[Rfam]
RNA sequence: AGGUAGCGGGUCAUAGUAUAAGAGGAGUACGCUCAUUUUUGAGAGGUCUUUGGUGCAAAUCCGAGUGCCCGUUACAAGACAGUACAGCAAUGUGCUGUCUUUUCUU
Numbered sequence: 001a002g003g004u005a006g007c008g009g010g011u012c013a014u015a016g017u018a019u020a021a022g023a024g025g026a027g028u029a030c031g032c033u034c035a036u037u038u039u040u041g042a043g044a045g046g047u048c049u050u051u052g053g054u055g056c057a058a059a060u061c062c063g064a065g066u067g068c069c070c071g072u073u074a075c076a077a078g079a080c081a082g083u084a085c086a087g088c089a090a091u092g093u094g095c096u097g098u099c100u101u102u103u104c105u106u
Base pairs, nucleotide, nucleotide: 003075004074005073006072007071008070009069012067013066032043033042034041035040049065050064051063052062053061079098080097081096082095083094084093085092086091
RNA: Streptococcus sRNA SpF41
Organism: Clostridium sp. CAG:964